[Rfam]
RNA: Bacterial RNase P class A
RNA sequence: GAAACUAACCAGACAGUCGCUGCUUAAACAUAUUUUUAUGUGUUGCAAACCAUAUAAAUAAAGGAGAGGAAAGUCCGGGCUCCAUAGGGCAGAGUGCCAGGUAAUACCUGGGAGGUGUAAACCUACGACUAGUGCAACAGAAAAUAAACCGCCGAUAAUUAUGUAUGAUACUAUUGUAGUAUACAUAUGAGAUUAGGUAAGGGUGAAAUGGUGUGGUAAGGGCACACCGCACGGCUGGUAACAGAUCGUGGCUCGGUAAACUCCACUCGGAGCAAGACCAAAUAGGGGGAUAUAGUAUUGCCCGUACUAAUACUCGGGUAGGUCGCUUGAGCCAGUAAGUAAUUACUGGCCUAGAUGAAUGACUGUCCAUGACAGAACCCGGCUUAUAGGUUAGUUUCAAUA
Numbered sequence: 001g002a003a004a005c006u007a008a009c010c011a012g013a014c015a016g017u018c019g020c021u022g023c024u025u026a027a028a029c030a031u032a033u034u035u036u037u038a039u040g041u042g043u044u045g046c047a048a049a050c051c052a053u054a055u056a057a058a059u060a061a062a063g064g065a066g067a068g069g070a071a072a073g074u075c076c077g078g079g080c081u082c083c084a085u086a087g088g089g090c091a092g093a094g095u096g097c098c099a100g101g102u103a104a105u106a107c108c109u110g111g112g113a114g115g116u117g118u119a120a121a122c123c124u125a126c127g128a129c130u131a132g133u134g135c136a137a138c139a140g141a142a143a144a145u146a147a148a149c150c151g152c153c154g155a156u157a158a159u160u161a162u163g164u165a166u167g168a169u170a171c172u173a174u175u176g177u178a179g180u181a182u183a184c185a186u187a188u189g190a191g192a193u194u195a196g197g198u199a200a201g202g203g204u205g206a207a208a209u210g211g212u213g214u215g216g217u218a219a220g221g222g223c224a225c226a227c228c229g230c231a232c233g234g235c236u237g238g239u240a241a242c243a244g245a246u247c248g249u250g251g252c253u254c255g256g257u258a259a260a261c262u263c264c265a266c267u268c269g270g271a272g273c274a275a276g277a278c279c280a281a282a283u284a285g286g287g288g289g290a291u292a293u294a295g296u297a298u299u300g301c302c303c304g305u306a307c308u309a310a311u312a313c314u315c316g317g318g319u320a321g322g323u324c325g326c327u328u329g330a331g332c333c334a335g336u337a338a339g340u341a342a343u344u345a346c347u348g349g350c351c352u353a354g355a356u357g358a359a360u361g362a363c364u365g366u367c368c369a370u371g372a373c374a375g376a377a378c379c380c381g382g383c384u385u386a387u388a389g390g391u392u393a394g395u396u397u398c399a400a401u402a
Base pairs, nucleotide, nucleotide: 001398002397003396004395005394006393007392008391009390010389011387012367013366014365015364016363017362018361020066021065023063024062025061027059071385072384073383075382076381077380078379079378080272081271082270083269087303088302089301090300092268093267094266095265096264097111098110099109100108101107112126113124114123115122116121127263128262132261133260134257135256149202150201151198152197153196159190160189161188162187163186164185210228211227212226213225214224215223229252230250231249232248233247234246235244236243237242276324277323278322279321286315287314288313290311291310294308295307296306297305298304331350332349333348334347335346336345337344338343
Dot-bracket structure: ((((((((((((((((((.((.(((.(...............................).))).))....[[[.[[[[[((((...[[[[.((((((((((.....)))))(((((....)))).)((...((((.............(((((.....((((((....................)))))).....)))..)).......((((((.......))))))(((((((((....))).))))).)...))..)))))))))))))...((((......(((.((..(((((.]]]]))))).)).))).....))))......((((((((....))))))))..........)))))))..........]]]]]]]].).))))))))))....